[Rfam]
RNA sequence: UUCCCUACGGCCCCUCUCAGGUCCGCCGCAACUCCUGAGUUCCGUAGGGCGGUUGGUCCGGAUGCGGACAGAGUGGCCUCUUCGACAUGCCGCUCCGGACCAGCCACUCU
Numbered sequence: 001u002u003c004c005c006u007a008c009g010g011c012c013c014c015u016c017u018c019a020g021g022u023c024c025g026c027c028g029c030a031a032c033u034c035c036u037g038a039g040u041u042c043c044g045u046a047g048g049g050c051g052g053u054u055g056g057u058c059c060g061g062a063u064g065c066g067g068a069c070a071g072a073g074u075g076g077c078c079u080c081u082u083c084g085a086c087a088u089g090c091c092g093c094u095c096c097g098g099a100c101c102a103g104c105c106a107c108u109c110u
Stems, first nucleotide, its partner, number of pairs: 003049008016039006051105011
Rfam assigns this 110-nucleotide RNA from Devosia lucknowensis to the family "EcpR1".
The organism belongs to Devosia, within Bacteria.
By type it is a small RNA.
The match comes from Rfam's covariance-model search (84 bits).
The base pairs follow the family's consensus structure, which was predicted with WAR.